[Rfam]
RNA sequence: GUCGAGGCUUCGGCUCGACAUACCGCGUCGCGGCGACGCUGCGGCGACCCGUAAACCAUGUUGCUUCACGGAGGAUAUGGCUAUGAGAA
Numbered sequence: 001g002u003c004g005a006g007g008c009u010u011c012g013g014c015u016c017g018a019c020a021u022a023c024c025g026c027g028u029c030g031c032g033g034c035g036a037c038g039c040u041g042c043g044g045c046g047a048c049c050c051g052u053a054a055a056c057c058a059u060g061u062u063g064c065u066u067c068a069c070g071g072a073g074g075a076u077a078u079g080g081c082u083a084u085g086a087g088a089a
Stems, first nucleotide, its partner, number of pairs: 001019006008013001026046009048087001050085004056080007064073003

The family of this 89-nucleotide sequence from Mesorhizobium australicum is "Repression of heat shock gene expression (ROSE) element". It is annotated as an RNA thermoregulator. A search with the family's covariance model found it, with a score of 54 bits. The family's consensus secondary structure is taken from published work. The family has 13 seed sequences and 381 matches in Rfam 15.1.